[Rfam]
RNA: PAGEV RNA
RNA sequence: CGAGGGUUGGAAUCACGAUGUUGUGGCCCCCGCUAGCGUCUCAGCGAGCGAUCACGGGGAUCUCCACACGCUCGCCGGUAUAGCCAUCAACGCUUAAAGUAGGCCGUCGGGGGUGCUCACCUUAGCCCGUCGCUCCGAAUUUUAUGUGGUGUUUGAUGCUGCACGCCGUGGAGGGGUGAGACUUGUUGGAAGUCUCAGAAGGUGUAGACGCCG
Numbered sequence: 001c002g003a004g005g006g007u008u009g010g011a012a013u014c015a016c017g018a019u020g021u022u023g024u025g026g027c028c029c030c031c032g033c034u035a036g037c038g039u040c041u042c043a044g045c046g047a048g049c050g051a052u053c054a055c056g057g058g059g060a061u062c063u064c065c066a067c068a069c070g071c072u073c074g075c076c077g078g079u080a081u082a083g084c085c086a087u088c089a090a091c092g093c094u095u096a097a098a099g100u101a102g103g104c105c106g107u108c109g110g111g112g113g114u115g116c117u118c119a120c121c122u123u124a125g126c127c128c129g130u131c132g133c134u135c136c137g138a139a140u141u142u143u144a145u146g147u148g149g150u151g152u153u154u155g156a157u158g159c160u161g162c163a164c165g166c167c168g169u170g171g172a173g174g175g176g177u178g179a180g181a182c183u184u185g186u187u188g189g190a191a192g193u194c195u196c197a198g199a200a201g202g203u204g205u206a207g208a209c210g211c212c213g
Base pairs, nucleotide, nucleotide: 001032002031004029005028006027007026044075045074046073047072048071049070063172064171065170066169067168085158086157087156088155089154090153091151092150093149094148159207160206161205162204163203164202177197178196179195180194181193